[Rfam]
RNA sequence: UUGACGCAGAAAUGAGAAUUGUUAUUAUUAUCGCAACUGAUCGCGAGGUCAGCCGAUAGCUGAAGGCUCAGGCAGUCGAUCCUUCAGGUUAUCUCCUCAUCAGGCUAAUCACGGUUUUGACCCGGCUCUGCCGGGUCUUUUUUUG
Numbered sequence: 001u002u003g004a005c006g007c008a009g010a011a012a013u014g015a016g017a018a019u020u021g022u023u024a025u026u027a028u029u030a031u032c033g034c035a036a037c038u039g040a041u042c043g044c045g046a047g048g049u050c051a052g053c054c055g056a057u058a059g060c061u062g063a064a065g066g067c068u069c070a071g072g073c074a075g076u077c078g079a080u081c082c083u084u085c086a087g088g089u090u091a092u093c094u095c096c097u098c099a100u101c102a103g104g105c106u107a108a109u110c111a112c113g114g115u116u117u118u119g120a121c122c123c124g125g126c127u128c129u130g131c132c133g134g135g136u137c138u139u140u141u142u143u144u145g
Stems, first nucleotide, its partner, number of pairs: 034055001037052006060087007067078001095104003119137008

A member of the RNA family "PrrF RNA" from Stutzerimonas stutzeri, 145 nucleotides long. The source organism's lineage runs through Bacteria, Pseudomonadati, Pseudomonadota, Pseudomonadales and Stutzerimonas stutzeri. The family's RNA type in Rfam is small RNA. About the family: PrrF RNA is a small RNA involved in iron homeostasis and is found exclusively in Pseudomonas species. Rfam links the family to the GO term sRNA-mediated gene silencing. For this family Rfam cites "Identification of tandem duplicate regulatory small RNAs in Pseudomonas aeruginosa involved in iron homeostasis" (Wilderman et al., Proc Natl Acad Sci U S A, 2004). Rfam 15.1 lists 107 matches to the family in 85 species.